RNA sequence: CCAAAGGCGAAGUGAACCUUCGUCUAGUCUUAUAUAAGGCGAAACUCUCAAAUUGCGGGAAACUCUUAAAAACAAACCUACCAAGUUAAUAUAGUAAUAUAAUUAAUGGAACAGGUAAUGACUCGUUGUAUGGUAAAAACGAUUUGUAUAUGUAGAAUAUCCGCAGCCAAGCACCAAGUAUUCUAAGGAAUAACGGUGUGCAGUUCAUCGACUAAAUGUGAGUUGGUUUUUUAUUAAUAUGAAAGGAUAUUAAUAAUUAGCUUAAGAUAUAGUCAGGCUCAAUAUAAGAGUAUUGG
Numbered sequence: 001c002c003a004a005a006g007g008c009g010a011a012g013u014g015a016a017c018c019u020u021c022g023u024c025u026a027g028u029c030u031u032a033u034a035u036a037a038g039g040c041g042a043a044a045c046u047c048u049c050a051a052a053u054u055g056c057g058g059g060a061a062a063c064u065c066u067u068a069a070a071a072a073c074a075a076a077c078c079u080a081c082c083a084a085g086u087u088a089a090u091a092u093a094g095u096a097a098u099a100u101a102a103u104u105a106a107u108g109g110a111a112c113a114g115g116u117a118a119u120g121a122c123u124c125g126u127u128g129u130a131u132g133g134u135a136a137a138a139a140c141g142a143u144u145u146g147u148a149u150a151u152g153u154a155g156a157a158u159a160u161c162c163g164c165a166g167c168c169a170a171g172c173a174c175c176a177a178g179u180a181u182u183c184u185a186a187g188g189a190a191u192a193a194c195g196g197u198g199u200g201c202a203g204u205u206c207a208u209c210g211a212c213u214a215a216a217u218g219u220g221a222g223u224u225g226g227u228u229u230u231u232u233a234u235u236a237a238u239a240u241g242a243a244a245g246g247a248u249a250u251u252a253a254u255a256a257u258u259a260g261c262u263u264a265a266g267a268u269a270u271a272g273u274c275a276g277g278c279u280c281a282a283u284a285u286a287a288g289a290g291u292a293u294u295g296g
Stems, first nucleotide, its partner, number of pairs: 002006001043224005049218002054165006064156003166204002171199004179192005208275001210274005226261003231256004281294005
The record is a 296-nucleotide RNA from Monosporascus sp. mg162, which matches "Group I catalytic intron" in Rfam.
Pairs were carried over by alignment from the consensus structure, which is taken from published work.
On this family, see Cech, Annu Rev Biochem 1990: "Self-splicing of group I introns".
Group I catalytic introns are large self-splicing ribozymes. They catalyse their own excision from mRNA, tRNA and rRNA precursors in a wide range of organisms. The core secondary structure consists of 9 paired regions (P1-P9). These fold to essentially two domains - the P4-P6 domain (formed from the stacking of P5, P4, P6 and P6a helices) and the P3-P9 domain (formed from the P8, P3, P7 and P9 helices). The secondary structure mark-up for this family represents only this conserved core. Group I catalytic introns often have long ORFs inserted in loop regions. The window size for this search is chosen to minimise search time and catch the small examples. A larger window size will find more matches.
Its family is annotated with Group I intron splicing in the Gene Ontology.